[Rfam]
RNA sequence: GGAUUGUGAUGAUUGAUAUUCUAUUUCUUAUAGUUUAUGUGAUGAUUCAACACCUCCUACUCAUUCUGA
Numbered sequence: 001g002g003a004u005u006g007u008g009a010u011g012a013u014u015g016a017u018a019u020u021c022u023a024u025u026u027c028u029u030a031u032a033g034u035u036u037a038u039g040u041g042a043u044g045a046u047u048c049a050a051c052a053c054c055u056c057c058u059a060c061u062c063a064u065u066c067u068g069a
Base pairs, nucleotide, nucleotide: 006064007063008062009061026045027044